Rfam assigns this 275-nucleotide RNA from Arachis hypogaea to the family "Early nodulin 40". Lineage of the source: Eukaryota > Streptophyta > Streptophytina > Tracheophyta > Arachis.
RNA sequence: AUGAAGCUUCUAUGCUGGCAAAAAUCUAUCCAUGGAUCUUGAAAGAAGCAUGGAGUGUUAUAAGUGUGAAGAGGGUUCAUUUGUUGUUUCACCCCUCACACUCAUAAAACUCCAAAAACAGUUUGCUUUGGCUUAAGCUAUGUUAUUAGCUUUUCUAUGAUCACUAAAGGGGGGAAGAAUCUUCUUGAUAGAGGAUCAUAUAGACAAGCUAUGGCGGCGAAAGCUCCGGCGAACCGGCAAGUCACAAGAAGGCAAUGGAUUCCAUUAAGGGUCCC
Dot-bracket structure: .................................................................(((..................................)))...............((((((............(.(...............................................................................).).....)))))).......................(((((......)))))..
The family's consensus secondary structure is taken from published work.